[Rfam]
RNA sequence: UAAGAAAAACGGCAAAACAGAUGAAAGUCUGCGACGCAAAGCUAUAGGGCCUGUAAAAUGGUAGCCAGUUACCACG
Numbered sequence: 001u002a003a004g005a006a007a008a009a010c011g012g013c014a015a016a017a018c019a020g021a022u023g024a025a026a027g028u029c030u031g032c033g034a035c036g037c038a039a040a041g042c043u044a045u046a047g048g049g050c051c052u053g054u055a056a057a058a059u060g061g062u063a064g065c066c067a068g069u070u071a072c073c074a075c076g
Stems, first nucleotide, its partner, number of pairs: 012037002018031005040070004047066002049062003